[Rfam]
The record is a 61-nucleotide RNA from Caballeronia novacaledonica, which matches "Betaproteobacteria toxic small RNA" in Rfam. Rfam's curators write: Overexpression in amino aid rich medium attenuates growth, suggesting role in repressing amino acid intake and metabolism. For this family Rfam cites "A vast collection of microbial genes that are toxic to bacteria" (Kimelman et al., Genome Res, 2012).
RNA sequence: UGUCUCCUCCACCUCCUCCUUGGUGGAUUAAGCCCGAGCCCAACGGCCCGGGCUUUUUUUC
Numbered sequence: 001u002g003u004c005u006c007c008u009c010c011a012c013c014u015c016c017u018c019c020u021u022g023g024u025g026g027a028u029u030a031a032g033c034c035c036g037a038g039c040c041c042a043a044c045g046g047c048c049c050g051g052g053c054u055u056u057u058u059u060u061c
Base pairs, nucleotide, nucleotide: 008027009026010025011024012023013022031054032053033052034051035050036049038047